[Rfam]
RNA sequence: GCAUUGACCAUUAUAAUACAACCUGAUAAGUAUGGCAGCACUUAUUGGAUUGGAUUGUAAUUGUCUGUGUG
Numbered sequence: 001g002c003a004u005u006g007a008c009c010a011u012u013a014u015a016a017u018a019c020a021a022c023c024u025g026a027u028a029a030g031u032a033u034g035g036c037a038g039c040a041c042u043u044a045u046u047g048g049a050u051u052g053g054a055u056u057g058u059a060a061u062u063g064u065c066u067g068u069g070u071g
Stems, first nucleotide, its partner, number of pairs: 013058005019052003023048003027044005033038001